RNA: PhotoRC-II RNA
RNA sequence: UUCAACACCAUAACUGCUCCCAACCAAGACCUCUGUAGGCAGUAUAAUACUUCGUCUUUCUAUCCAGUAGUGAGGGAUUACUGGAAAUAAGUUUCGCA
Numbered sequence: 001u002u003c004a005a006c007a008c009c010a011u012a013a014c015u016g017c018u019c020c021c022a023a024c025c026a027a028g029a030c031c032u033c034u035g036u037a038g039g040c041a042g043u044a045u046a047a048u049a050c051u052u053c054g055u056c057u058u059u060c061u062a063u064c065c066a067g068u069a070g071u072g073a074g075g076g077a078u079u080a081c082u083g084g085a086a087a088u089a090a091g092u093u094u095c096g097c098a
Stems, first nucleotide, its partner, number of pairs: 014042005020035001026058005063085007